Small nucleolar RNA Z105: a 71-nucleotide RNA from Prunus dulcis. It scores 52 bits against the family's covariance model. NCBI's taxonomy places the organism under Eukaryota, Streptophytina, Euphyllophyta, Rosales, Prunus. Its family is annotated with nucleolus and RNA processing in the Gene Ontology.
RNA sequence: CAGGCAUGGUGAUGAUGUGUAUCAUCUGAUAUUCAUUUUUGAUGAAUUUACUUACCUCCUACUCAUUCUGA
Numbered sequence: 001c002a003g004g005c006a007u008g009g010u011g012a013u014g015a016u017g018u019g020u021a022u023c024a025u026c027u028g029a030u031a032u033u034c035a036u037u038u039u040u041g042a043u044g045a046a047u048u049u050a051c052u053u054a055c056c057u058c059c060u061a062c063u064c065a066u067u068c069u070g071a
Base pairs, nucleotide, nucleotide: 006066007065008064009063028047032041